[Rfam]
RNA sequence: AAGCGAGGACGACCUCCCCCGUAACGGGCGAUUUUUCCGGGACGACCCGG
Numbered sequence: 001a002a003g004c005g006a007g008g009a010c011g012a013c014c015u016c017c018c019c020c021g022u023a024a025c026g027g028g029c030g031a032u033u034u035u036u037c038c039g040g041g042a043c044g045a046c047c048c049g050g
Stems, first nucleotide, its partner, number of pairs: 003018001005016004037050005